[Rfam]
RNA sequence: CCGUGCUAGGUGGGAAGGUAGCGGUGUCCUGUACUCGCAAUCCGCUCUAGCGAGACUGAAUUCCUAUUCUGAGGCUGAUGUCCUGUAGGGUCUGCCUUUAGUAAGUGGUGUUGACGCUUGGGUCCUGCGCAAUGGGAACCCAUGAACCAUGUCAGGUCCGGAAGGAAGCAGCAUUAAGUGGACUCUCUCAUGUGCCGCAGGGUUGCCUGAGCUGAGCUAACUGCUAAAGUAACGCUUAUGGGCGUCAGUCGAAGAUAGGUGCACGG
Numbered sequence: 001c002c003g004u005g006c007u008a009g010g011u012g013g014g015a016a017g018g019u020a021g022c023g024g025u026g027u028c029c030u031g032u033a034c035u036c037g038c039a040a041u042c043c044g045c046u047c048u049a050g051c052g053a054g055a056c057u058g059a060a061u062u063c064c065u066a067u068u069c070u071g072a073g074g075c076u077g078a079u080g081u082c083c084u085g086u087a088g089g090g091u092c093u094g095c096c097u098u099u100a101g102u103a104a105g106u107g108g109u110g111u112u113g114a115c116g117c118u119u120g121g122g123u124c125c126u127g128c129g130c131a132a133u134g135g136g137a138a139c140c141c142a143u144g145a146a147c148c149a150u151g152u153c154a155g156g157u158c159c160g161g162a163a164g165g166a167a168g169c170a171g172c173a174u175u176a177a178g179u180g181g182a183c184u185c186u187c188u189c190a191u192g193u194g195c196c197g198c199a200g201g202g203u204u205g206c207c208u209g210a211g212c213u214g215a216g217c218u219a220a221c222u223g224c225u226a227a228a229g230u231a232a233c234g235c236u237u238a239u240g241g242g243c244g245u246c247a248g249u250c251g252a253a254g255a256u257a258g259g260u261g262c263a264c265g266g
Stems, first nucleotide, its partner, number of pairs: 001266006009057003012030004017025001019023001034054005063259003068255003073250005079244002082242008093231002097228006105221002107218003116212008124201006130192002133190005140181004149174004157166003

Bacterial large signal recognition particle RNA: a 266-nucleotide sequence from Cytobacillus kochii. For this family Rfam cites "SRPDB: Signal Recognition Particle Database" (Rosenblad et al., Nucleic Acids Res, 2003). It scores 237 bits against the family's covariance model.